This 160-nucleotide sequence from Lactuca saligna belongs to the Rfam family "small nucleolar RNA snoR134". For this family Rfam cites "Mining small RNA sequencing data: a new approach to identify small nucleolar RNAs in Arabidopsis" (Chen and Wu, Nucleic Acids Res, 2009). The match comes from Rfam's covariance-model search (94 bits). By type it is an H/ACA-box small nucleolar RNA. The family's consensus secondary structure was predicted with RNAalifold.
[Rfam]
RNA sequence: UUGCAUGUAGCACCCCGGGCUUCUCUGAAAAAUCAAAUUGGAUGAAGAAGAAAGCCCCAAUGCUCGUGCUAAAUCAGAUAUACAGCCGUCAAGUGUUGCAGUUCAGCCUUUUUGUACCUUUUUCCAUGGCCGUUUCUGUGUCAAAUCGACCGCUACAGAU
Numbered sequence: 001u002u003g004c005a006u007g008u009a010g011c012a013c014c015c016c017g018g019g020c021u022u023c024u025c026u027g028a029a030a031a032a033u034c035a036a037a038u039u040g041g042a043u044g045a046a047g048a049a050g051a052a053a054g055c056c057c058c059a060a061u062g063c064u065c066g067u068g069c070u071a072a073a074u075c076a077g078a079u080a081u082a083c084a085g086c087c088g089u090c091a092a093g094u095g096u097u098g099c100a101g102u103u104c105a106g107c108c109u110u111u112u113u114g115u116a117c118c119u120u121u122u123u124c125c126a127u128g129g130c131c132g133u134u135u136c137u138g139u140g141u142c143a144a145a146u147c148g149a150c151c152g153c154u155a156c157a158g159a160u
Stems, first nucleotide, its partner, number of pairs: 003069005010063002017057005022051002024048003085153002088150003094143002097140005106130003